[Rfam]
RNA sequence: GAGAGUAAGUCGUGCCGGUGGCGAUCGCGGACUUCAAAUCCGAUGAAAGGGCGGUUGACCGUUCUUUGGGGGGUUCGAUUCCCUCACUCUCUC
Numbered sequence: 001g002a003g004a005g006u007a008a009g010u011c012g013u014g015c016c017g018g019u020g021g022c023g024a025u026c027g028c029g030g031a032c033u034u035c036a037a038a039u040c041c042g043a044u045g046a047a048a049g050g051g052c053g054g055u056u057g058a059c060c061g062u063u064c065u066u067u068g069g070g071g072g073g074u075u076c077g078a079u080u081c082c083c084u085c086a087c088u089c090u091c092u093c
Stems, first nucleotide, its partner, number of pairs: 001091006009025005015020001028042004046067007070084004
This 93-nucleotide RNA from Campylobacter hominis belongs to the Rfam family "Selenocysteine transfer RNA". The literature on the family includes a 2000 paper in FEBS Lett by Mizutani and Goto, "Eukaryotic selenocysteine tRNA has the 9/4 secondary structure". It is one of the family's seed sequences. Taxonomically the source falls in Campylobacter hominis (Bacteria, Pseudomonadati, Epsilonproteobacteria, Campylobacter).